[Rfam]
RNA sequence: UACCAUUUUGGGAAUGAAUGUCUCCCUUAGCAUACUGCUUAAACCGCUUAUUAAAGCUGAUGACUUCUGCGCAUAG
Number, nucleotide and partner (000 for none) at each position: 001u000002a000003c000004c000005a000006u000007u000008u000009u000010g026011g025012g024013a023014a000015u000016g067017a066018a065019u000020g064021u063022c062023u013024c012025c011026c010027u000028u000029a000030g000031c000032a000033u000034a000035c000036u000037g000038c000039u000040u000041a000042a000043a000044c000045c000046g057047c056048u055049u054050a000051u000052u000053a000054a049055a048056g047057c046058u000059g000060a000061u000062g022063a021064c020065u018066u017067c016068u000069g000070c000071g000072c000073a000074u000075a000076g000

Shown here is a 76-nucleotide sequence from Carnobacterium sp. AT7, a member of the family "Fluoride riboswitch aptamer (crcB RNA motif)". The base pairs follow the family's consensus structure, which is taken from published work. Rfam's curators put it in the seed alignment.